[Rfam]
RNA sequence: UCAGUCCCCUAAUCAGGCCAUAGCAGAAGCAUUCAUGGAAUAGCCAUGUCAGAUUCCAACGAAUCUGCAAAUUCUGUU
Numbered sequence: 001u002c003a004g005u006c007c008c009c010u011a012a013u014c015a016g017g018c019c020a021u022a023g024c025a026g027a028a029g030c031a032u033u034c035a036u037g038g039a040a041u042a043g044c045c046a047u048g049u050c051a052g053a054u055u056c057c058a059a060c061g062a063a064u065c066u067g068c069a070a071a072u073u074c075u076g077u078u
Stems, first nucleotide, its partner, number of pairs: 013046001016045003022078007029041001050067007